[Rfam]
A member of the RNA family "RtT RNA" from Pantoea agglomerans, 136 nucleotides long. By type it is a cis-regulatory element. Lineage of the source: Bacteria > Pseudomonadota > Enterobacterales > Erwiniaceae > Pantoea. Gene Ontology term of the family: cellular response to amino acid starvation. This family represents a bacterial cis-regulatory element known as RtT RNA. The exact function of RtT is unknown although it is thought that it may be involved in changing the cellular response in relation to amino acid starvation. A reference for the family is Bosl and Kersten (1991), "A novel RNA product of the tyrT operon of Escherichia coli", Nucleic Acids Res.

RNA sequence: GCACGGACUUUACCGUGCAGGAUGAGAACCUGCUGCAGGUUCGACUGAAUCGCCGGGAGCGAUUCAGGCUGAUGCGACAGCAUCACCCGCAGGGCGAGGCCCACGACGGGCCGAGGCUAUCUUGCACGACCCACCA
Numbered sequence: 001g002c003a004c005g006g007a008c009u010u011u012a013c014c015g016u017g018c019a020g021g022a023u024g025a026g027a028a029c030c031u032g033c034u035g036c037a038g039g040u041u042c043g044a045c046u047g048a049a050u051c052g053c054c055g056g057g058a059g060c061g062a063u064u065c066a067g068g069c070u071g072a073u074g075c076g077a078c079a080g081c082a083u084c085a086c087c088c089g090c091a092g093g094g095c096g097a098g099g100c101c102c103a104c105g106a107c108g109g110g111c112c113g114a115g116g117c118u119a120u121c122u123u124g125c126a127c128g129a130c131c132c133a134c135c136a
Base pairs, nucleotide, nucleotide: 015127016126017125018124019123020122021121023119033096040091042089043088047065048064049063050062051061052060053059071084072083073082074081075080